[Rfam]
Nucleotides: 073
Base pairs, nucleotide, nucleotide: 001071002070003069004068005067009060010059011058012057013056022055023054024053030048031047032046034045035044036043037042
Number, partner (000 for none) and nucleotide at each position: 001071a002070c003069u004068g005067u006000g007000g008000a009060g010059u011058g012057u013056a014000c015000a016000a017000g018000a019000a020000c021000u022055u023054g024053u025000g026000a027000g028000u029000a030048g031047u032046g033000a034045g035044u036043u037042a038000c039000u040000u041000g042037u043036a044035a045034c046032c047031a048030c049000a050000a051000a052000a053024g054023c055022a056013u057012a058011c059010a060009c061000g062000u063000u064000g065000a066000a067005a068004c069003a070002g071001u072000a073000a

The record is a 73-nucleotide RNA from Lachnospira multipara, which matches "RAGATH-18 RNA" in Rfam. A search with the family's covariance model found it, with a score of 74 bits. Rfam describes the family as follows. Actinobacteria, Firmicutes, Fusobacteria, Thermotogae (1 example). NCBI's taxonomy places the organism under Bacteria, Bacillota, Lachnospirales, Lachnospiraceae, Lachnospira.